[Rfam]
RNA sequence: AAAUACAUUGAGGAUUGACCCAGGUUGCAACAUCAUAAAUAGGAGCAAUGAACUUUAUUGUUGUUUGCCAUCUACUAAUCCUGACGACCUAUUAAACUUAUUUGUGUAUUUUUCCAGAGUACAAGGUGUAUUACCGCUUUCAAGCUAUCUGGACGGGAUAAUACCCGUC
Numbered sequence: 001a002a003a004u005a006c007a008u009u010g011a012g013g014a015u016u017g018a019c020c021c022a023g024g025u026u027g028c029a030a031c032a033u034c035a036u037a038a039a040u041a042g043g044a045g046c047a048a049u050g051a052a053c054u055u056u057a058u059u060g061u062u063g064u065u066u067g068c069c070a071u072c073u074a075c076u077a078a079u080c081c082u083g084a085c086g087a088c089c090u091a092u093u094a095a096a097c098u099u100a101u102u103u104g105u106g107u108a109u110u111u112u113u114c115c116a117g118a119g120u121a122c123a124a125g126g127u128g129u130a131u132u133a134c135c136g137c138u139u140u141c142a143a144g145c146u147a148u149c150u151g152g153a154c155g156g157g158a159u160a161a162u163a164c165c166c167g168u169c
Base pairs, nucleotide, nucleotide: 001111002110003109004108005107006106008087009086010085012081013080014079015077022073023072024071026070027069029065030064031063032062036060037059038058041055042054043053117148118146119145120144123140124139125138126137127136128135152169153168154167155166156165157164

Rfam assigns this 169-nucleotide sequence from Tolypothrix tenuis to the family "Nitrogen stress-induced RNA 8".
The family's consensus secondary structure was predicted with RNAalifold.
Its family is annotated with heterocyst differentiation in the Gene Ontology.
For this family Rfam cites "Identification of Conserved and Potentially Regulatory Small RNAs in Heterocystous Cyanobacteria" (Brenes-Alvarez et al., Front Microbiol, 2016).
The organism belongs to Tolypothrix tenuis, within Bacteria.
The family's RNA type in Rfam is small RNA.